[Rfam]
RNA sequence: GGUUGGACAAACUAAAGUUUGAUUUCAAGAAAUUUGUUUCCAGGGUGGGAGACU
Numbered sequence: 001g002g003u004u005g006g007a008c009a010a011a012c013u014a015a016a017g018u019u020u021g022a023u024u025u026c027a028a029g030a031a032a033u034u035u036g037u038u039u040c041c042a043g044g045g046u047g048g049g050a051g052a053c054u
Base pairs, nucleotide, nucleotide: 003028004027005026006023008021009020010019011018036053037052038051039050040049041048